[Rfam]
RNA sequence: UACUUAUCAAGAGCAGGUGGAGGGACUAGCCCAAUGAAGCCCGGCAACCGACCCGAACGAAUCAUGUUCAGGCACGGUGCUAAUUCUUGCAGCAGACAUGCUGAGGGAUAAGGU
Numbered sequence: 001u002a003c004u005u006a007u008c009a010a011g012a013g014c015a016g017g018u019g020g021a022g023g024g025a026c027u028a029g030c031c032c033a034a035u036g037a038a039g040c041c042c043g044g045c046a047a048c049c050g051a052c053c054c055g056a057a058c059g060a061a062u063c064a065u066g067u068u069c070a071g072g073c074a075c076g077g078u079g080c081u082a083a084u085u086c087u088u089g090c091a092g093c094a095g096a097c098a099u100g101c102u103g104a105g106g107g108a109u110a111a112g113g114u
Base pairs, nucleotide, nucleotide: 003112004111005110006109007108008107013042016041017040018039022032023031024030026089028087029086043081044080045079046078048077049076050073052071085106090103091102092101093100094099
A member of the RNA family "SAM riboswitch aptamer (S box leader)" from Bacillus sp. SJS, 114 nucleotides long. The organism belongs to Bacillus, within Bacteria. A search with the family's covariance model found it, with a score of 71 bits.